RNA sequence: CCGGCACCCAUGACGGUCUGUCUAAAAACCAGUCCGCUGGUGGGGCAGACCCGAGAACCCGGCGUG
Numbered sequence: 001c002c003g004g005c006a007c008c009c010a011u012g013a014c015g016g017u018c019u020g021u022c023u024a025a026a027a028a029c030c031a032g033u034c035c036g037c038u039g040g041u042g043g044g045g046c047a048g049a050c051c052c053g054a055g056a057a058c059c060c061g062g063c064g065u066g
Stems, first nucleotide, its partner, number of pairs: 001066001004063002015051009030039003